Shown here is a 171-nucleotide RNA from Halobacteriovorax marinus, a member of the family "Lysine riboswitch aptamer".
[Rfam]
RNA sequence: UAGAAAUGAAGAGGCGCAUCUCUUAGGUAAUUUACUGGAAGAUUUUUGGAUCUAGCGAAAGUAAGUGAUGGAAGAUUUGCCGAAAUAGGGCCUUGCCAAAGAAAGGUGCUAUUGGUUGCUAGGGCUGAAUCCCUAGGACUGUCACAGGCAAUGUGGAGUACUUCUAGAAUC
Number, nucleotide and partner (000 for none) at each position: 001u000002a000003g000004a000005a000006a000007u000008g164009a163010a162011g161012a000013g000014g000015c000016g080017c079018a078019u000020c000021u075022c074023u073024u072025a000026g000027g000028u000029a000030a066031u065032u064033u063034a062035c061036u060037g000038g000039a000040a000041g000042a000043u000044u000045u000046u000047u000048g000049g000050a000051u000052c000053u000054a000055g000056c000057g000058a000059a000060a036061g035062u034063a033064a032065g031066u030067g000068a000069u000070g000071g000072a024073a023074g022075a021076u000077u000078u018079g017080c016081c000082g000083a000084a113085a112086u111087a110088g109089g000090g107091c106092c105093u104094u103095g000096c000097c000098a000099a000100a000101g000102a000103a094104a093105g092106g091107u090108g000109c088110u087111a086112u085113u084114g140115g139116u138117u137118g000119c136120u135121a134122g133123g132124g131125c000126u000127g000128a000129a000130u000131c124132c123133c122134u121135a120136g119137g117138a116139c115140u114141g000142u156143c155144a154145c153146a152147g000148g000149c000150a000151a000152u146153g145154u144155g143156g142157a000158g000159u000160a000161c011162u010163u009164c008165u000166a000167g000168a000169a000170u000171c000
Annotation:
From the family's description: Riboswitches are metabolite binding domains within certain messenger RNAs that serve as precision sensors for their corresponding targets. The match comes from Rfam's covariance-model search (79 bits).